The family of this 156-nucleotide RNA sequence from Cereibacter changlensis is "Ruegeria cis2 sRNA". The match comes from Rfam's covariance-model search (65 bits).
RNA sequence: AUCGAGCUGUAAUGCGGGUGGUAGUUCAGGAAGAUGAAGCCGCGCCCCUGGUCGAUGGUGUGGAACAGCGGGUUCCAGUCGAACAGCCGCAGCAGCAGCGAGGGCAUGGCGUUGGCGACGAACAUCUUGCCCGAGGCCACCAUGUUGACCCGCAUG
Numbered sequence: 001a002u003c004g005a006g007c008u009g010u011a012a013u014g015c016g017g018g019u020g021g022u023a024g025u026u027c028a029g030g031a032a033g034a035u036g037a038a039g040c041c042g043c044g045c046c047c048c049u050g051g052u053c054g055a056u057g058g059u060g061u062g063g064a065a066c067a068g069c070g071g072g073u074u075c076c077a078g079u080c081g082a083a084c085a086g087c088c089g090c091a092g093c094a095g096c097a098g099c100g101a102g103g104g105c106a107u108g109g110c111g112u113u114g115g116c117g118a119c120g121a122a123c124a125u126c127u128u129g130c131c132c133g134a135g136g137c138c139a140c141c142a143u144g145u146u147g148a149c150c151c152g153c154a155u156g
Stems, first nucleotide, its partner, number of pairs: 002037003008034001010032001013029001016026002039059004043054002046051001066156002068153003072084004090147005095141001099136001103132002105129002108126002112121003